[Rfam]
RNA sequence: AUGGCCAGACAUUACAAAAUACAAACGCCAUAAACUUCAUUCAGCCUUCUUGCUGUCCGGUAACGGAGGCUGCUUUUUCGUUACACCUUUCCCCGGCAGCAUCAGUAGCAGUAAUUUAUAGAUUCUACGAACUGAGACUGUCUGUCCGGGGAGAACGUACACAGCCCGACACAAUGUAC
Numbered sequence: 001a002u003g004g005c006c007a008g009a010c011a012u013u014a015c016a017a018a019a020u021a022c023a024a025a026c027g028c029c030a031u032a033a034a035c036u037u038c039a040u041u042c043a044g045c046c047u048u049c050u051u052g053c054u055g056u057c058c059g060g061u062a063a064c065g066g067a068g069g070c071u072g073c074u075u076u077u078u079c080g081u082u083a084c085a086c087c088u089u090u091c092c093c094c095g096g097c098a099g100c101a102u103c104a105g106u107a108g109c110a111g112u113a114a115u116u117u118a119u120a121g122a123u124u125c126u127a128c129g130a131a132c133u134g135a136g137a138c139u140g141u142c143u144g145u146c147c148g149g150g151g152a153g154a155a156c157g158u159a160c161a162c163a164g165c166c167c168g169a170c171a172c173a174a175u176g177u178a179c
Stems, first nucleotide, its partner, number of pairs: 005060002008057001023031001039054001041052001043050002061083009090152007097144003101141002104139003109134004119127003153177001155175001158171001160168001
RNA: Antisense to pHK01_099
Organism: Escherichia coli